Overview: The record is a 130-nucleotide RNA from Streptomyces sp. YIM 130001, which matches "Streptomyces RNA 5676" in Rfam. The base pairs follow the family's consensus structure. From the family's description: Identified by deep sequencing of transcriptome at the end of exponential growth phase. Appears longer on northern blot than sequencing transcript. This indicates processing step. Streptomyces specific.

[Rfam]
RNA sequence: AGAUGAGUGAAACACCUCGCCCACAGGGGACUGCGGACGAGGCCGGGUCGGCGCUUCCCCGGUGCCGCCCUGGACGUGCCGACGCGCACACCACCGGAUCCCGGCGCUCGGGAAUCCUCACCCGAUCGGA
Dot-bracket structure: ...((((.((......(((.((.(((....))).)).)))..(((((.((((((.......)))))).)))))..((((......))))....((.((.(.....).)).))..)))))).((....)).